RNA: Small nucleolar RNA SNORD11B
RNA sequence: UGGCAGUGCUGAUGAUGACGACACUUGUCUUCCUCCUGAAUUUCCCAGUGUGGGUUUUCAGUCACUACCUCAUCUGAACUGUCA
Numbered sequence: 001u002g003g004c005a006g007u008g009c010u011g012a013u014g015a016u017g018a019c020g021a022c023a024c025u026u027g028u029c030u031u032c033c034u035c036c037u038g039a040a041u042u043u044c045c046c047a048g049u050g051u052g053g054g055u056u057u058u059c060a061g062u063c064a065c066u067a068c069c070u071c072a073u074c075u076g077a078a079c080u081g082u083c084a
Stems, first nucleotide, its partner, number of pairs: 002083006